Background:
This 95-nucleotide sequence from Theobroma cacao belongs to the Rfam family "Small nucleolar RNA snoR8a". A search with the family's covariance model found it, with a score of 48 bits. A reference for the family is Brown et al. (2001), "Multiple snoRNA gene clusters from Arabidopsis", RNA.

RNA sequence: GAGAAAGUGAUGAUUAUAAAAAUAAUUCAUCAUUUUGACUUGCUUAAUUUGGACAUGACAAAUCUCUUAUUACACCUAUAGAAUCUGAGCUACUC
Numbered sequence: 001g002a003g004a005a006a007g008u009g010a011u012g013a014u015u016a017u018a019a020a021a022a023u024a025a026u027u028c029a030u031c032a033u034u035u036u037g038a039c040u041u042g043c044u045u046a047a048u049u050u051g052g053a054c055a056u057g058a059c060a061a062a063u064c065u066c067u068u069a070u071u072a073c074a075c076c077u078a079u080a081g082a083a084u085c086u087g088a089g090c091u092a093c094u095c
Stems, first nucleotide, its partner, number of pairs: 003095002006091002